[Rfam]
RNA sequence: AGUAUUGCAAAGGGGGUAACUGCAGGAGAGUUUAUGUCAUGGACCUGGUCAGAUUUUUGAAUCUGUGAAUCCUGCU
Numbered sequence: 001a002g003u004a005u006u007g008c009a010a011a012g013g014g015g016g017u018a019a020c021u022g023c024a025g026g027a028g029a030g031u032u033u034a035u036g037u038c039a040u041g042g043a044c045c046u047g048g049u050c051a052g053a054u055u056u057u058u059g060a061a062u063c064u065g066u067g068a069a070u071c072c073u074g075c076u
Stems, first nucleotide, its partner, number of pairs: 013046003017042001022075006028040001030038001050065006

A member of the RNA family "Mammalian CPEB3 ribozyme" from Sphenodon punctatus, 76 nucleotides long. Lineage of the source: Eukaryota > Tetrapoda > Amniota > Sauria > Sphenodon.